[Rfam]
RNA: Guanidine-II riboswitch aptamer (mini-ykkC)
RNA sequence: CUCGCGGGACGACCCGCGAGCCGAACAAACAACGCCGGGACGACCCGG
Numbered sequence: 001c002u003c004g005c006g007g008g009a010c011g012a013c014c015c016g017c018g019a020g021c022c023g024a025a026c027a028a029a030c031a032a033c034g035c036c037g038g039g040a041c042g043a044c045c046c047g048g
Stems, first nucleotide, its partner, number of pairs: 001020008035048005